[Rfam]
RNA: U7 small nuclear RNA
Organism: Cebus imitator
RNA sequence: AAGUGUUACAGCUCUUUUAGAAUAUUAGACCUCUAGCAGGUCUUCCAGUCUUGACCGGAAACACUCCC
Numbered sequence: 001a002a003g004u005g006u007u008a009c010a011g012c013u014c015u016u017u018u019a020g021a022a023u024a025u026u027a028g029a030c031c032u033c034u035a036g037c038a039g040g041u042c043u044u045c046c047a048g049u050c051u052u053g054a055c056c057g058g059a060a061a062c063a064c065u066c067c068c
Base pairs, nucleotide, nucleotide: 039065040064041063043060044059045058046057048055049054
Dot-bracket structure: ......................................(((.((((.((....)).))))..)))...